[Rfam]
RNA sequence: AUAUCAUAACUUUUUAAAAUAUGCUUUAUCUGCUUAAGAAAUCAUGGGAUAAUUUGCUGUGGACAUGACCAUAAAAAAUUUCCCACUAGGUUUUCUAUCUGUUACCGUGUUAGCAAUCAGCCUAUUGGGAACAUUU
Numbered sequence: 001a002u003a004u005c006a007u008a009a010c011u012u013u014u015u016a017a018a019a020u021a022u023g024c025u026u027u028a029u030c031u032g033c034u035u036a037a038g039a040a041a042u043c044a045u046g047g048g049a050u051a052a053u054u055u056g057c058u059g060u061g062g063a064c065a066u067g068a069c070c071a072u073a074a075a076a077a078a079u080u081u082c083c084c085a086c087u088a089g090g091u092u093u094u095c096u097a098u099c100u101g102u103u104a105c106c107g108u109g110u111u112a113g114c115a116a117u118c119a120g121c122c123u124a125u126u127g128g129g130a131a132c133a134u135u136u
Base pairs, nucleotide, nucleotide: 001066002065004062005061006060023057024056082129083128084127085126089122090121091120092119100115101114102113
RNA: Small nucleolar RNA SNORA32
Organism: Carlito syrichta